The family of this 59-nucleotide RNA sequence from Pseudokineococcus lusitanus is "msiK RNA". The match comes from Rfam's covariance-model search (54 bits).
RNA sequence: GCCCGGCAACCCCUACGACGGAUCGUCCGGCACGUACCUGCCGGUGGGAGGACACACCA
Numbered sequence: 001g002c003c004c005g006g007c008a009a010c011c012c013c014u015a016c017g018a019c020g021g022a023u024c025g026u027c028c029g030g031c032a033c034g035u036a037c038c039u040g041c042c043g044g045u046g047g048g049a050g051g052a053c054a055c056a057c058c059a
Stems, first nucleotide, its partner, number of pairs: 010051001012048004027044006